[Rfam]
RNA sequence: UUGAAGGCAGAGGGAGAGAUUACAAUUCCAGGCAAUUGUAACGCCGAAGGAGCAAGCCGUUGCGGAAGCGGUGAAUCUCUCAGGCAAAAGGACCUCUGCCGGACG
Numbered sequence: 001u002u003g004a005a006g007g008c009a010g011a012g013g014g015a016g017a018g019a020u021u022a023c024a025a026u027u028c029c030a031g032g033c034a035a036u037u038g039u040a041a042c043g044c045c046g047a048a049g050g051a052g053c054a055a056g057c058c059g060u061u062g063c064g065g066a067a068g069c070g071g072u073g074a075a076u077c078u079c080u081c082a083g084g085c086a087a088a089a090g091g092a093c094c095u096c097u098g099c100c101g102g103a104c105g
Stems, first nucleotide, its partner, number of pairs: 006100008020041006043085003046081002050079003056072006

The family of this 105-nucleotide RNA sequence from Paenibacillus macerans is "Glycine riboswitch aptamer". From the family's description: This family represents the bacterial glycine riboswitch. Glycine riboswitches usually consist of two metabolite-binding aptamers domains with similar structures in tandem. The aptamers cooperatively bind glycine to regulate the expression of downstream genes. In Bacillus subtilis, this riboswitch is found upstream of the gcvT operon which controls glycine degradation. A search with the family's covariance model found it, with a score of 73 bits.